[Rfam]
RNA: Small nucleolar RNA SNORA9
Organism: Amphiprion ocellaris
RNA sequence: GUGCAGACCUUUCCAGCGAGACUGAGCCUGCUGUGGUUCUGCUCUUUCCUGUUGCGUCUGCUAGAGAACCAUGAGGCUGUUUGAGGCCCUGCUGUGGAUCCACAUGGCAGGGUUAUAGGUAAACCUCUGACAAUC
Numbered sequence: 001g002u003g004c005a006g007a008c009c010u011u012u013c014c015a016g017c018g019a020g021a022c023u024g025a026g027c028c029u030g031c032u033g034u035g036g037u038u039c040u041g042c043u044c045u046u047u048c049c050u051g052u053u054g055c056g057u058c059u060g061c062u063a064g065a066g067a068a069c070c071a072u073g074a075g076g077c078u079g080u081u082u083g084a085g086g087c088c089c090u091g092c093u094g095u096g097g098a099u100c101c102a103c104a105u106g107g108c109a110g111g112g113u114u115a116u117a118g119g120u121a122a123a124c125c126u127c128u129g130a131c132a133a134u135c
Stems, first nucleotide, its partner, number of pairs: 003061006019045003024039005073127004087112006094105003